[Rfam]
RNA: Wolbachia sRNA 46
RNA sequence: GCAACUUCUAGCAGAAAAGGGUGUCAUCCGAGUAGCUAACACUGGGAUCCAGGAAACUUGAUUACAAAUAAAUAUGCUGUUUUAAUGAAUUUGUGUAAUAGAAGCUAGAUUCCAGUGUCAGCUACUUUCAUGACAUCAUCUACUAUGUAAAUU
Numbered sequence: 001g002c003a004a005c006u007u008c009u010a011g012c013a014g015a016a017a018a019g020g021g022u023g024u025c026a027u028c029c030g031a032g033u034a035g036c037u038a039a040c041a042c043u044g045g046g047a048u049c050c051a052g053g054a055a056a057c058u059u060g061a062u063u064a065c066a067a068a069u070a071a072a073u074a075u076g077c078u079g080u081u082u083u084a085a086u087g088a089a090u091u092u093g094u095g096u097a098a099u100a101g102a103a104g105c106u107a108g109a110u111u112c113c114a115g116u117g118u119c120a121g122c123u124a125c126u127u128u129c130a131u132g133a134c135a136u137c138a139u140c141u142a143c144u145a146u147g148u149a150a151a152u153u
Stems, first nucleotide, its partner, number of pairs: 011148003015144001022135006030127008039118011051106002